[Rfam]
RNA sequence: CCCUUAACUAUUAAAAGUUUCGUUUUGGUCCCUUAACUUAUUUUUUGGUUUCAUUUUGGUCCCUUAACUCUUCCUCCGUCAACCACUUUGGUCCUUUAUGUUAGAUGAAUGUAUUAGAGUUAAGGGACCAAAACGAAACUUUUAAUAGUUAAGGGACCAAAACAAAACCAAAAAAUAAGUUAAGGGACUAAAUGAGUAAUUAAGCCA
Numbered sequence: 001c002c003c004u005u006a007a008c009u010a011u012u013a014a015a016a017g018u019u020u021c022g023u024u025u026u027g028g029u030c031c032c033u034u035a036a037c038u039u040a041u042u043u044u045u046u047g048g049u050u051u052c053a054u055u056u057u058g059g060u061c062c063c064u065u066a067a068c069u070c071u072u073c074c075u076c077c078g079u080c081a082a083c084c085a086c087u088u089u090g091g092u093c094c095u096u097u098a099u100g101u102u103a104g105a106u107g108a109a110u111g112u113a114u115u116a117g118a119g120u121u122a123a124g125g126g127a128c129c130a131a132a133a134c135g136a137a138a139c140u141u142u143u144a145a146u147a148g149u150u151a152a153g154g155g156a157c158c159a160a161a162a163c164a165a166a167a168c169c170a171a172a173a174a175a176u177a178a179g180u181u182a183a184g185g186g187a188c189u190a191a192a193u194g195a196g197u198a199a200u201u202a203a204g205c206c207a
Stems, first nucleotide, its partner, number of pairs: 003204005023192002027189003031185013045171003
MIR2655 microRNA precursor family: a 207-nucleotide sequence from Medicago truncatula. Its family is annotated with miRNA-mediated post-transcriptional gene silencing and RISC complex in the Gene Ontology. Lineage of the source: Eukaryota > Embryophyta > Spermatophyta > Hologalegina > Medicago.